[Rfam]
RNA sequence: AGAUGAGAGAUACACCCCGCCCACAGGGGACUGUGGGCGAACUCAGGCCGUGGCCUCCCCAGCUACGACCUGGUCGUGCCCUCGCGCACACUCCCGGAGCUUCCGGCUCCGGAUCUCCUCACCGAUCGGA
Numbered sequence: 001a002g003a004u005g006a007g008a009g010a011u012a013c014a015c016c017c018c019g020c021c022c023a024c025a026g027g028g029g030a031c032u033g034u035g036g037g038c039g040a041a042c043u044c045a046g047g048c049c050g051u052g053g054c055c056u057c058c059c060c061a062g063c064u065a066c067g068a069c070c071u072g073g074u075c076g077u078g079c080c081c082u083c084g085c086g087c088a089c090a091c092u093c094c095c096g097g098a099g100c101u102u103c104c105g106g107c108u109c110c111g112g113a114u115c116u117c118c119u120c121a122c123c124g125a126u127c128g129g130a
Base pairs, nucleotide, nucleotide: 004121005120006119007118009117010116018039019038020037021036022035023034024033025032026031043073044072045071046070047069049067050066051065052064053063054062076089077088078087079086094112095111096110097109098108099107100106122129123128